The family of this 61-nucleotide RNA sequence from Rhizobium sp. BG4 is "terC RNA".
Taxonomically the source falls in Rhizobium (Bacteria, Pseudomonadati, Hyphomicrobiales, Rhizobiaceae).

[Rfam]
RNA sequence: CCUGCAGUCCGGGCCCCUCUGGCGAGAGAAGCCGGUCCUCUCGCGAUGUCGGAUGUCGUAU
Dot-bracket structure: ......((((((.........(((((((.........)))))))....)))))).......

It is annotated as a cis-regulatory element.
The match comes from Rfam's covariance-model search (54 bits).